A member of the RNA family "Group II catalytic intron D1-D4-6" from Candidatus Regiella insecticola, 244 nucleotides long. About the family: Group II introns are found in rRNA, tRNA and mRNA of organelles in fungi, plants and protists, and also in mRNA in bacteria.
RNA sequence: AAAGUCCUGUCUCGGAAGGUGAAGCUAGCACCACCGAGUAGUGAGUCUUGCGCUCUCCCGGGUAACUUGGAGGGUGAAGCGUAGACAACGAAACAUUCGAGCCGAAACCAAAUGGUGAACGUGAUAGCCCCGAAAUGGAACCGAUCGUGGAAGCUGACGGAUUUGCGUAUCCGGCAAGCAAUAAAUUCCUGGAGGCCAACCUAGCGAAUUGCCAAAAGAGAUUAACCACCGGGGUCACAGGCGU
Numbered sequence: 001a002a003a004g005u006c007c008u009g010u011c012u013c014g015g016a017a018g019g020u021g022a023a024g025c026u027a028g029c030a031c032c033a034c035c036g037a038g039u040a041g042u043g044a045g046u047c048u049u050g051c052g053c054u055c056u057c058c059c060g061g062g063u064a065a066c067u068u069g070g071a072g073g074g075u076g077a078a079g080c081g082u083a084g085a086c087a088a089c090g091a092a093a094c095a096u097u098c099g100a101g102c103c104g105a106a107a108c109c110a111a112a113u114g115g116u117g118a119a120c121g122u123g124a125u126a127g128c129c130c131c132g133a134a135a136u137g138g139a140a141c142c143g144a145u146c147g148u149g150g151a152a153g154c155u156g157a158c159g160g161a162u163u164u165g166c167g168u169a170u171c172c173g174g175c176a177a178g179c180a181a182u183a184a185a186u187u188c189c190u191g192g193a194g195g196c197c198a199a200c201c202u203a204g205c206g207a208a209u210u211g212c213c214a215a216a217a218g219a220g221a222u223u224a225a226c227c228a229c230c231g232g233g234g235u236c237a238c239a240g241g242c243g244u
Base pairs, nucleotide, nucleotide: 012037013036014035015034018032019031020030021029039091041089042088045086046085047084048083049081050080051076052075053074054073055072056071057070058069060067061066127235128234129233130232131231132230147229148228149227150226153179154178155177158173159172160171161170184223185222186221187220189218190217
Dot-bracket structure: ...........((((..((((.......)))).)))).(.((..((((((((((((((.((....)).))))))))...)).)))).)).)...................................((((((..............((((..(((..((((........))))...)))....((((.((..........................)).))))..)))))))))).........